[Rfam]
RNA sequence: AUGGGGACUAGCCCGGGUGGCUCGGCGUCACUUGUUACCCGAAACCGUCGGUACGCGGGGGGCGAAGUUUGACCGAGGCUGCAACGGCCUGCGGGAGCCUGUGUGUUCUGACGUUGAAACCUCGUCCCAUGAGGUCGAUGGACAGUGUUCAAAAUUCCGGAGGGAAUGGCGACCUGUUGCUGCGGGGACCGGUUCAGGCCCGGAAGGGAGCAGACUAACCGCAGACAUCCGGCGCCCAUGGGGUAACGGGGCGGAGGAUGAACGCUUUGGUGAACGCAGAAACGUACAGUCGACCGAGAACAUGUCCCCAC
Numbered sequence: 001a002u003g004g005g006g007a008c009u010a011g012c013c014c015g016g017g018u019g020g021c022u023c024g025g026c027g028u029c030a031c032u033u034g035u036u037a038c039c040c041g042a043a044a045c046c047g048u049c050g051g052u053a054c055g056c057g058g059g060g061g062g063c064g065a066a067g068u069u070u071g072a073c074c075g076a077g078g079c080u081g082c083a084a085c086g087g088c089c090u091g092c093g094g095g096a097g098c099c100u101g102u103g104u105g106u107u108c109u110g111a112c113g114u115u116g117a118a119a120c121c122u123c124g125u126c127c128c129a130u131g132a133g134g135u136c137g138a139u140g141g142a143c144a145g146u147g148u149u150c151a152a153a154a155u156u157c158c159g160g161a162g163g164g165a166a167u168g169g170c171g172a173c174c175u176g177u178u179g180c181u182g183c184g185g186g187g188a189c190c191g192g193u194u195c196a197g198g199c200c201c202g203g204a205a206g207g208g209a210g211c212a213g214a215c216u217a218a219c220c221g222c223a224g225a226c227a228u229c230c231g232g233c234g235c236c237c238a239u240g241g242g243g244u245a246a247c248g249g250g251g252c253g254g255a256g257g258a259u260g261a262a263c264g265c266u267u268u269g270g271u272g273a274a275c276g277c278a279g280a281a282a283c284g285u286a287c288a289g290u291c292g293a294c295c296g297a298g299a300a301c302a303u304g305u306c307c308c309c310a311c
Stems, first nucleotide, its partner, number of pairs: 002310007011063004015033007038059004067301004077291005084285003089279005099269001101267001103265006112256001114254001120251006126242006133235001134233004138228003141178004147174001149172002154167005180224006191216004199208003

Description: The record is a 311-nucleotide RNA sequence from Methanoregula formicica, which matches "Archaeal signal recognition particle RNA" in Rfam. A search with the family's covariance model found it, with a score of 169 bits. Clan: SRP clan. The organism belongs to Methanoregula formicica, within Archaea.